[Rfam]
RNA: Small nucleolar RNA SNORA73 family
RNA sequence: CCAACGUGGACAUCCCGUGAGAUGCCUCUCAUGUGGCUCUGUCCAUGUGGCGUAUGGGAGCGUAGCACUUCGGUGUUGUGACGUACAGUCCCGUUCCACGACGUUGGAUAGCAAGCUUGUCCCCGGCCUCUGGCUGGUGUGGACUACGUCCUGUAUAUUCCUACAUCUUCCCAGAGCCCUUUGGGCCAUUACUGGGGAGGUAAACCAUGCAGUGCACACUA
Numbered sequence: 001c002c003a004a005c006g007u008g009g010a011c012a013u014c015c016c017g018u019g020a021g022a023u024g025c026c027u028c029u030c031a032u033g034u035g036g037c038u039c040u041g042u043c044c045a046u047g048u049g050g051c052g053u054a055u056g057g058g059a060g061c062g063u064a065g066c067a068c069u070u071c072g073g074u075g076u077u078g079u080g081a082c083g084u085a086c087a088g089u090c091c092c093g094u095u096c097c098a099c100g101a102c103g104u105u106g107g108a109u110a111g112c113a114a115g116c117u118u119g120u121c122c123c124c125g126g127c128c129u130c131u132g133g134c135u136g137g138u139g140u141g142g143a144c145u146a147c148g149u150c151c152u153g154u155a156u157a158u159u160c161c162u163a164c165a166u167c168u169u170c171c172c173a174g175a176g177c178c179c180u181u182u183g184g185g186c187c188a189u190u191a192c193u194g195g196g197g198a199g200g201u202a203a204a205c206c207a208u209g210c211a212g213u214g215c216a217c218a219c220u221a
Base pairs, nucleotide, nucleotide: 001107002106003105004104005103006102007101008044009043010042011041012040014036015035019028020027021026047099048098049097050096056092057091058090059089060086062084063083065079066078151212152211153210154209155208156207167199168198169197170196171195172194176186177185178184179183